[Rfam]
Nucleotides: 099
Stems, first nucleotide, its partner, number of pairs: 006087005011049004016043001017026003033042002055080003061074004
Number, partner (000 for none) and nucleotide at each position: 001000u002000u003000c004000c005000a006087c007086u008085u009084g010083u011049c012048g013047g014046a015000g016043u017026g018025c019024c020000a021000u022000u023000g024019g025018g026017c027000u028000g029000a030000g031000a032000c033042c034041g035000u036000u037000u038000a039000u040000u041034c042033g043016g044000g045000a046014u047013c048012c049011g050000u051000u052000g053000a054000a055080c056079c057078u058000g059000a060000u061074c062073a063072g064071g065000u066000u067000a068000a069000u070000a071064c072063c073062u074061g075000c076000g077000a078057a079056g080055g081000g082000a083010a084009c085008a086007a087006g088000a089000g090000a091000a092000g093000a094000c095000u096000c097000u098000c099000u

TPP riboswitch aptamer (THI element): a 99-nucleotide RNA sequence from Vibrio cholerae. A search with the family's covariance model found it, with a score of 76 bits. The family's consensus secondary structure is taken from published work.